[Rfam]
RNA sequence: AUUCCGGUUGAUCCUGCCGGACCAGACCGCUAUCGGAGUAGGGCUAAGCCAUGGGAGUCUACACCUCCGGGUCAAGGAGGUGUGGCGUACGGCUGAGUAACACGUGGCUAACCUGCCCUCAGGACGGGAAUAACCCCGGGAAACUGGGGAUAAUUCCCGAUAGGUGAGGGGUACUGGAAGGUCCCCUCGCCGAAAGGCCCUUGGGCUACUGUCCAAGGGUGCCUCAGGAUGGGGCUGCGGCCCAUCAGGUAGUUGGAAGGGUAAAGGCCUUCCAAGCCUAUAACGGGUAGGGGCCGUGAAAGCGGGAGCCUCCAGAUGGGCACUGAGACAAGGGCCCAGGCCCUACGGGGUGCACCAGGCGCGAAACGUCCACAAUGCGCGUUUGCGUGAUGGCGCUACUCCGAGUGCCUCGUUAGAGGCUUUUCCCCACUCUAAAAAGGUGGGGGAAUAAGCGGGGGGCAAGACUGGUGUCAGCCGCCGCGGUAAUACCAGCUCCGCGAGUGGUCUGGGCUUUUAUUG
Numbered sequence: 001a002u003u004c005c006g007g008u009u010g011a012u013c014c015u016g017c018c019g020g021a022c023c024a025g026a027c028c029g030c031u032a033u034c035g036g037a038g039u040a041g042g043g044c045u046a047a048g049c050c051a052u053g054g055g056a057g058u059c060u061a062c063a064c065c066u067c068c069g070g071g072u073c074a075a076g077g078a079g080g081u082g083u084g085g086c087g088u089a090c091g092g093c094u095g096a097g098u099a100a101c102a103c104g105u106g107g108c109u110a111a112c113c114u115g116c117c118c119u120c121a122g123g124a125c126g127g128g129a130a131u132a133a134c135c136c137c138g139g140g141a142a143a144c145u146g147g148g149g150a151u152a153a154u155u156c157c158c159g160a161u162a163g164g165u166g167a168g169g170g171g172u173a174c175u176g177g178a179a180g181g182u183c184c185c186c187u188c189g190c191c192g193a194a195a196g197g198c199c200c201u202u203g204g205g206c207u208a209c210u211g212u213c214c215a216a217g218g219g220u221g222c223c224u225c226a227g228g229a230u231g232g233g234g235c236u237g238c239g240g241c242c243c244a245u246c247a248g249g250u251a252g253u254u255g256g257a258a259g260g261g262u263a264a265a266g267g268c269c270u271u272c273c274a275a276g277c278c279u280a281u282a283a284c285g286g287g288u289a290g291g292g293g294c295c296g297u298g299a300a301a302g303c304g305g306g307a308g309c310c311u312c313c314a315g316a317u318g319g320g321c322a323c324u325g326a327g328a329c330a331a332g333g334g335c336c337c338a339g340g341c342c343c344u345a346c347g348g349g350g351u352g353c354a355c356c357a358g359g360c361g362c363g364a365a366a367c368g369u370c371c372a373c374a375a376u377g378c379g380c381g382u383u384u385g386c387g388u389g390a391u392g393g394c395g396c397u398a399c400u401c402c403g404a405g406u407g408c409c410u411c412g413u414u415a416g417a418g419g420c421u422u423u424u425c426c427c428c429a430c431u432c433u434a435a436a437a438a439g440g441u442g443g444g445g446g447a448a449u450a451a452g453c454g455g456g457g458g459g460c461a462a463g464a465c466u467g468g469u470g471u472c473a474g475c476c477g478c479c480g481c482g483g484u485a486a487u488a489c490c491a492g493c494u495c496c497g498c499g500a501g502u503g504g505u506c507u508g509g510g511c512u513u514u515u516a517u518u519g
Stems, first nucleotide, its partner, number of pairs: 004020005022509010033404009042362001048360003052357003057086003061083007093315003103239007112232002117228003121224003125159004134149006164190008173182002197220010241287003248278003253275008290312004294305004317338005340351004368394001370393003376389005407420005425445007452498006465492004474481002

Archaeal small subunit ribosomal RNA: a 519-nucleotide part of an RNA from Sulfodiicoccus acidiphilus. The source organism's lineage runs through Archaea, Thermoproteota, Thermoprotei, Sulfolobaceae and Sulfodiicoccus. Rfam 15.1 lists 709 matches to the family in 491 species. Rfam links the family to the GO terms ribosome and structural constituent of ribosome. A reference for the family is Yusupov et al. (2001), "Crystal structure of the ribosome at 5.5 A resolution", Science. A search with the family's covariance model found it, with a score of 1452 bits.